[Rfam]
RNA: Small nucleolar RNA SNORD19
RNA sequence: GAGCUAUGAAGAUUUUAAAGUAAUCUGAGAUUUCAUUGAAGACAUAAGAUCCAACUCUGAGCUCGCUAAAAAG
Numbered sequence: 001g002a003g004c005u006a007u008g009a010a011g012a013u014u015u016u017a018a019a020g021u022a023a024u025c026u027g028a029g030a031u032u033u034c035a036u037u038g039a040a041g042a043c044a045u046a047a048g049a050u051c052c053a054a055c056u057c058u059g060a061g062c063u064c065g066c067u068a069a070a071a072a073g
Base pairs, nucleotide, nucleotide: 001064002063003062004061